[Rfam]
RNA sequence: UUUGCAAGUUUGAGGCCAUAGUAGAAGUGCUCUUGACAUGGCCCUGUCAGAUUCUAACAAAUCUGCAAAUUCUGCU
Numbered sequence: 001u002u003u004g005c006a007a008g009u010u011u012g013a014g015g016c017c018a019u020a021g022u023a024g025a026a027g028u029g030c031u032c033u034u035g036a037c038a039u040g041g042c043c044c045u046g047u048c049a050g051a052u053u054c055u056a057a058c059a060a061a062u063c064u065g066c067a068a069a070u071u072c073u074g075c076u
Base pairs, nucleotide, nucleotide: 012044014043015042016041017040020076021075022074023073024072025071026070027039028038029037048065049064050063051062052061053060
Mammalian CPEB3 ribozyme: a 76-nucleotide RNA sequence from Alligator mississippiensis. Rfam describes the family as follows. The mammalian CPEB3 ribozyme is a self cleaving RNA located in the second intron of the CPEB3 gene which belongs to a family of genes regulating messenger RNA polyadenylation. This ribozyme is highly conserved and found only in mammals. The CPEB3 ribozyme is structurally and biochemically related to the human hepatitis delta virus (HDV) ribozyme and the HDV ribozyme is proposed to have arisen from the human transcriptome. A search with the family's covariance model found it, with a score of 53 bits. Gene Ontology term of the family: RNA nuclease activity.